RNA sequence: CCGUCCGAGGGGCGCUGCAGCAGGCUCGACCUGUCAGGCUCGGAUGGGGCGUUGUCCUUACAGGUCUUGCCUGGGGACGCCAAACGCACACAACGGCGCCCAUUCGAA
Numbered sequence: 001c002c003g004u005c006c007g008a009g010g011g012g013c014g015c016u017g018c019a020g021c022a023g024g025c026u027c028g029a030c031c032u033g034u035c036a037g038g039c040u041c042g043g044a045u046g047g048g049g050c051g052u053u054g055u056c057c058u059u060a061c062a063g064g065u066c067u068u069g070c071c072u073g074g075g076g077a078c079g080c081c082a083a084a085c086g087c088a089c090a091c092a093a094c095g096g097c098g099c100c101c102a103u104u105c106g107a108a
Base pairs, nucleotide, nucleotide: 002046003045004044005043006042007041008040021033022032023031024030